[Rfam]
This 98-nucleotide RNA from Tetracentron sinense belongs to the Rfam family "Small nucleolar RNA snoR109". The family has 6 seed sequences and 680 matches in Rfam 15.1. The organism belongs to Tetracentron, within Eukaryota. The literature on the family includes a 2002 paper in Curr Biol by Marker et al., "Experimental RNomics: identification of 140 candidates for small non-messenger RNAs in the plant Arabidopsis thaliana".
RNA sequence: CGGCUGUAGCUAAAUCAAUGAUGAUGAGAAGUUUACUGGCCGGUUGUUGUGAGAUUUCAUCUCAGUCGACAUAUCUGCUUACCGAACUUCUUACAUUC
Numbered sequence: 001c002g003g004c005u006g007u008a009g010c011u012a013a014a015u016c017a018a019u020g021a022u023g024a025u026g027a028g029a030a031g032u033u034u035a036c037u038g039g040c041c042g043g044u045u046g047u048u049g050u051g052a053g054a055u056u057u058c059a060u061c062u063c064a065g066u067c068g069a070c071a072u073a074u075c076u077g078c079u080u081a082c083c084g085a086a087c088u089u090c091u092u093a094c095a096u097u098c
Base pairs, nucleotide, nucleotide: 026092027091028090029089030088031087032086033085038079039078040077042075043074044073046070047069048068049067